[Rfam]
RNA sequence: AGGAAGAACAACCACAGUGGUGGUGGCCAGCCCUGGAGUCCUGGAUUCAGCCCCCGCAGUAACUCCGGGGCUCUCCGUCUGCAGGGCCUGGAGGCUCCCGGGCGGG
Numbered sequence: 001a002g003g004a005a006g007a008a009c010a011a012c013c014a015c016a017g018u019g020g021u022g023g024u025g026g027c028c029a030g031c032c033c034u035g036g037a038g039u040c041c042u043g044g045a046u047u048c049a050g051c052c053c054c055c056g057c058a059g060u061a062a063c064u065c066c067g068g069g070g071c072u073c074u075c076c077g078u079c080u081g082c083a084g085g086g087c088c089u090g091g092a093g094g095c096u097c098c099c100g101g102g103c104g105g106g
Base pairs, nucleotide, nucleotide: 002098003097004096009090010089012086013085019079020078021077022076023075025074026073029072030071031070032069033068034067035066036065037064041059042058043057
This 106-nucleotide RNA from Vulpes vulpes belongs to the Rfam family "mir-8834 microRNA precursor family". The family's consensus secondary structure was predicted with RNAalifold. Rfam links the family to the GO terms miRNA-mediated post-transcriptional gene silencing and RISC complex.